[Rfam]
RNA: Ribosomal protein L20 leader
RNA sequence: GAGGAUAAGAAGAAGCACCCGCUUCUCACCUGAUUGACGCAAAGUGCAGUUGGCAGGUUUUACGUAAACAUGAAUGUUUAAAUUUUGUACGUAAAGUGUGGGUGAUUUCAUCCACACUUUUUUAUUUGU
Numbered sequence: 001g002a003g004g005a006u007a008a009g010a011a012g013a014a015g016c017a018c019c020c021g022c023u024u025c026u027c028a029c030c031u032g033a034u035u036g037a038c039g040c041a042a043a044g045u046g047c048a049g050u051u052g053g054c055a056g057g058u059u060u061u062a063c064g065u066a067a068a069c070a071u072g073a074a075u076g077u078u079u080a081a082a083u084u085u086u087g088u089a090c091g092u093a094a095a096g097u098g099u100g101g102g103u104g105a106u107u108u109c110a111u112c113c114a115c116a117c118u119u120u121u122u123u124a125u126u127u128g129u
Base pairs, nucleotide, nucleotide: 011026012025013024014023015022016021028058029057030056036051037050038049039047040046097116098115099114100113101112102111103110104109
Dot-bracket structure: ..........((((((....)))))).(((.....(((((.....)).)))....)))......................................((((((((....)))))))).............